Overview: Shown here is a 136-nucleotide RNA sequence from Anaerocolumna cellulosilytica, a member of the family "Ribosomal protein L10 leader". The literature on the family includes a 2008 paper in Biochemistry by Iben and Draper, "Specific interactions of the L10(L12)4 ribosomal protein complex with mRNA, rRNA, and L11". It scores 86 bits against the family's covariance model. The base pairs follow the family's consensus structure, which was predicted with CMfinder.
RNA sequence: CUUUUAAAGCAAUAACUGCCGAAGACAGUAGGUGCCGCAAGGCAUAAGUUGAUAACGCCUACCGAGGGAUAAAAGCUGAUAAACGAAUUUUAUCAAUCCCUUACUGCCUUGCAGUAAGGGAUUUUCUUUUGCAUUA
Numbered sequence: 001c002u003u004u005u006a007a008a009g010c011a012a013u014a015a016c017u018g019c020c021g022a023a024g025a026c027a028g029u030a031g032g033u034g035c036c037g038c039a040a041g042g043c044a045u046a047a048g049u050u051g052a053u054a055a056c057g058c059c060u061a062c063c064g065a066g067g068g069a070u071a072a073a074a075g076c077u078g079a080u081a082a083a084c085g086a087a088u089u090u091u092a093u094c095a096a097u098c099c100c101u102u103a104c105u106g107c108c109u110u111g112c113a114g115u116a117a118g119g120g121a122u123u124u125u126c127u128u129u130u131g132c133a134u135u136a
Stems, first nucleotide, its partner, number of pairs: 028062006034043003097121010